[Rfam]
Background: The family of this 139-nucleotide RNA sequence from Brassica napus is "Small nucleolar RNA snoR2/U65". The base pairs follow the family's consensus structure, which was predicted with WAR. For this family Rfam cites "Localization and processing from a polycistronic precursor of novel snoRNAs in maize" (Shaw et al., J Cell Sci, 1998). The family's RNA type in Rfam is H/ACA-box small nucleolar RNA. Its family is annotated with RNA processing and nucleolus in the Gene Ontology.
RNA sequence: UGUUCGAUGCCACGUCUGCGAUAGCUUUUGGCUUUGAUCGUCGAUGCUACAUUGGACAUAAACAGAUGUUUGUGUUUCGCUUUUCUGAUAGGAACCUGUGGAUCUUGUUAUCUUUGGGGCCAAUAUGGCGAUUACAUUU
Numbered sequence: 001u002g003u004u005c006g007a008u009g010c011c012a013c014g015u016c017u018g019c020g021a022u023a024g025c026u027u028u029u030g031g032c033u034u035u036g037a038u039c040g041u042c043g044a045u046g047c048u049a050c051a052u053u054g055g056a057c058a059u060a061a062a063c064a065g066a067u068g069u070u071u072g073u074g075u076u077u078c079g080c081u082u083u084u085c086u087g088a089u090a091g092g093a094a095c096c097u098g099u100g101g102a103u104c105u106u107g108u109u110a111u112c113u114u115u116g117g118g119g120c121c122a123a124u125a126u127g128g129c130g131a132u133u134a135c136a137u138u139u
Base pairs, nucleotide, nucleotide: 002057003056004055005054006053007052008051009050013046014045015044016043018041020039021038022037024032025031026030077131078130079129080128081127091121092120096117097116098115100113101112102111103110

Lineage of the source: Eukaryota > Mesangiospermae > rosids > Brassiceae > Brassica.